[Rfam]
RNA sequence: GUUGAAGCUCCAUCUAUAAAUGGAUAAGACUUUUUUAUUAGUCUUAAAAGACGAGUUUUUGAUUUGAAAGUAAAGGGGCAAUAAUCAAUAUUCAUUAAUAGGGGGUUUGAUUAUUGCUCCUUU
Numbered sequence: 001g002u003u004g005a006a007g008c009u010c011c012a013u014c015u016a017u018a019a020a021u022g023g024a025u026a027a028g029a030c031u032u033u034u035u036u037a038u039u040a041g042u043c044u045u046a047a048a049a050g051a052c053g054a055g056u057u058u059u060u061g062a063u064u065u066g067a068a069a070g071u072a073a074a075g076g077g078g079c080a081a082u083a084a085u086c087a088a089u090a091u092u093c094a095u096u097a098a099u100a101g102g103g104g105g106u107u108u109g110a111u112u113a114u115u116g117c118u119c120c121u122u123u
Stems, first nucleotide, its partner, number of pairs: 009024005072123013086109003091104003
This 123-nucleotide RNA from Memecylon pauciflorum belongs to the Rfam family "Plastid-psbA-1 3UTR RNA".
Rfam classes the family as a cis-regulatory element.
The family's consensus secondary structure was predicted with LocARNA.
Rfam describes the family as follows. Plastid psbA-1 is a non-coding RNA (ncRNA) present in plastids.
The sequence is in the family's curated seed alignment.